[Rfam]
RNA: RcsR1 sRNA
Organism: Gillisella ampelina
RNA sequence: CCAUGAAUGCUUGGUGGUGGGUUCGCUAACGCGGCCUUGACCAGUCAUGUCUAAAGACGAUUGACCCAAAGCCGCCCGGAUUUCCUGAGGCGGCUUUUUU
Numbered sequence: 001c002c003a004u005g006a007a008u009g010c011u012u013g014g015u016g017g018u019g020g021g022u023u024c025g026c027u028a029a030c031g032c033g034g035c036c037u038u039g040a041c042c043a044g045u046c047a048u049g050u051c052u053a054a055a056g057a058c059g060a061u062u063g064a065c066c067c068a069a070a071g072c073c074g075c076c077c078g079g080a081u082u083u084c085c086u087g088a089g090g091c092g093g094c095u096u097u098u099u100u
Stems, first nucleotide, its partner, number of pairs: 011044005017038001019037004024033003048059004069096008077087003